Shown here is a 75-nucleotide RNA sequence from Castanea mollissima, a member of the family "Plastid-ycf2 5UTR RNA". Plastid ycf2 is a non-coding RNA (ncRNA) recognised in plastids. It was found in the prime untranslated region (5UTR) of ycf2 genes, it presents a tRNA-like motif which suggests it can be involved in mRNA maturation, particularly involved in defining the precise 5' end of the transcript. The base pairs follow the family's consensus structure, which was predicted with LocARNA. For this family Rfam cites "Retrograde signaling in plants: A critical review focusing on the GUN pathway and beyond" (Richter et al., Plant Commun, 2023).

RNA sequence: GGGCAUAUAGUAGGAAUCGAACUUAUGAGUUCGCCAAUUAUAAGUUGAGUUCUUUAACCAUUCAGCCAUGGAUGC
Dot-bracket structure: ..((((.(.(((((.......))))).............((..(((((((.........))))))).))).))))